[Rfam]
The family of this 62-nucleotide RNA sequence from Prolemur simus is "U7 small nuclear RNA". The base pairs follow the family's consensus structure, which was predicted with PFOLD.
RNA sequence: AAGUAUUACAACUCCUUUAGAAUUUGUUUUGCAGGUUUUCCAGUCCUCACUGGAAGACCCCA
Numbered sequence: 001a002a003g004u005a006u007u008a009c010a011a012c013u014c015c016u017u018u019a020g021a022a023u024u025u026g027u028u029u030u031g032c033a034g035g036u037u038u039u040c041c042a043g044u045c046c047u048c049a050c051u052g053g054a055a056g057a058c059c060c061c062a
Stems, first nucleotide, its partner, number of pairs: 034059011